[Rfam]
RNA sequence: AGUAAUAGAAUAGGUGACUCAAGGAUGAUCGGCCAUUUUCCCGUGAAGGGCAAUCUAAGUGCGCGACGUCCUGUCGCAACGAUUGCAUGACCUACCUCCUGUAGGCCAGAGGUGGUCGAUGUGACAGUAUUUGAAACACUAAUGCUCGUAUUUACUUUCGCAGCACUAGUCGUAGCCAUAUUGUCAUCAAACGACAAAAAAUAAUCCAUCCUUGAGUUGAUCGCUCGUGUAGGAUGGAUUUUUCAUCUCUGUGCCGAUCCCCUUUGGGAACCUACGCUAUUAUAUUGACCGUUCAAGGUGCAACUUGGGCG
Numbered sequence: 001a002g003u004a005a006u007a008g009a010a011u012a013g014g015u016g017a018c019u020c021a022a023g024g025a026u027g028a029u030c031g032g033c034c035a036u037u038u039u040c041c042c043g044u045g046a047a048g049g050g051c052a053a054u055c056u057a058a059g060u061g062c063g064c065g066a067c068g069u070c071c072u073g074u075c076g077c078a079a080c081g082a083u084u085g086c087a088u089g090a091c092c093u094a095c096c097u098c099c100u101g102u103a104g105g106c107c108a109g110a111g112g113u114g115g116u117c118g119a120u121g122u123g124a125c126a127g128u129a130u131u132u133g134a135a136a137c138a139c140u141a142a143u144g145c146u147c148g149u150a151u152u153u154a155c156u157u158u159c160g161c162a163g164c165a166c167u168a169g170u171c172g173u174a175g176c177c178a179u180a181u182u183g184u185c186a187u188c189a190a191a192c193g194a195c196a197a198a199a200a201a202u203a204a205u206c207c208a209u210c211c212u213u214g215a216g217u218u219g220a221u222c223g224c225u226c227g228u229g230u231a232g233g234a235u236g237g238a239u240u241u242u243u244c245a246u247c248u249c250u251g252u253g254c255c256g257a258u259c260c261c262c263u264u265u266g267g268g269a270a271c272c273u274a275c276g277c278u279a280u281u282a283u284a285u286u287g288a289c290c291g292u293u294c295a296a297g298g299u300g301c302a303a304c305u306u307g308g309g310c311g
Stems, first nucleotide, its partner, number of pairs: 001281002004278001006276001011257001013255004018216008027206003033115003037112004123185007138149001160176002221238002258269004290311008
RNA: BsrG